[Rfam]
The family of this 118-nucleotide RNA from Nesterenkonia sedimenti is "SAM (S-adenosyl methionine) riboswitch aptamer".
The family has 40 seed sequences and 2,360 matches in Rfam 15.1.

RNA sequence: GAUCACGAGUACCGGUUCACAGAAGCUCUGGCUGACCGGUCGGCAACCCUUCCGCGGUGAUGGGGUGCCCCAGAUGACGAUCCGGCCGCGGGCACCCGCCUGACGGCAAGCACGGCAA
Number, nucleotide and partner (000 for none) at each position: 001g082002a081003u080004c079005a000006c000007g000008a000009g041010u000011a040012c039013c038014g037015g036016u035017u000018c000019a000020c000021a000022g000023a000024a033025g032026c000027u000028c000029u000030g000031g000032c025033u024034g000035a016036c015037c014038g013039g012040u011041c009042g069043g068044c067045a000046a000047c065048c064049c063050u000051u060052c059053c000054g000055c000056g000057g000058u000059g052060a051061u000062g000063g049064g048065g047066u000067g044068c043069c042070c000071c000072a000073g000074a000075u000076g000077a000078c000079g004080a003081u002082c001083c000084g000085g107086c106087c105088g104089c102090g101091g100092g099093c098094a000095c000096c000097c000098g093099c092100c091101u090102g089103a000104c088105g087106g086107c085108a000109a000110g000111c000112a000113c000114g000115g000116c000117a000118a000
Overview:
The base pairs follow the family's consensus structure, which is taken from published work.